[Rfam]
RNA sequence: CUGCGGUGCAUUGUAGUUGCAUUGCAUGUGUUUGUGCUGUGUGCAAUGUUCCUGCAGUGCAACACAG
Numbered sequence: 001c002u003g004c005g006g007u008g009c010a011u012u013g014u015a016g017u018u019g020c021a022u023u024g025c026a027u028g029u030g031u032u033u034g035u036g037c038u039g040u041g042u043g044c045a046a047u048g049u050u051c052c053u054g055c056a057g058u059g060c061a062a063c064a065c066a067g
Base pairs, nucleotide, nucleotide: 001067002066003065006063007061008060009059010058011057012056013055014054015053016052019049021047022046023045024044025043026042027041
RNA: mir-33 microRNA precursor family
Organism: Scleropages formosus